[Rfam]
Nucleotides: 115
Stems, first nucleotide, its partner, number of pairs: 007109001009107005020042004044094003047090002051088003057081002
Number, partner (000 for none) and nucleotide at each position: 001000u002000a003000g004000c005000g006000a007109u008000a009107c010106u011105c012104u013103g014000g015000a016000a017000a018000g019000u020042g021041c022040a023039g024000g025000a026000g027000c028000c029000c030000u031000u032000c033000g034000g035000g036000a037000a038000u039023c040022u041021g042020c043000c044094g045093c046092c047090g048089a049000a050000g051088g052087g053086g054000u055000a056000a057081c058080c059000c060000g061000g062000c063000c064000u065000c066000a067000c068000u069000c070000a071000g072000g073000g074000a075000a076000c077000c078000g079000g080058g081057g082000a083000a084000a085000g086053c087052u088051c089048u090047c091000a092046g093045g094044c095000u096000u097000c098000c099000g100000u101000g102000a103013c104012a105011g106010a107009g108000g109007g110000g111000g112000c113000a114000c115000c
The family of this 115-nucleotide sequence from Novosphingobium marinum is "Glycine riboswitch aptamer". The pairing is the family consensus, mapped onto this sequence. The organism belongs to Novosphingobium, within Bacteria. It scores 52 bits against the family's covariance model.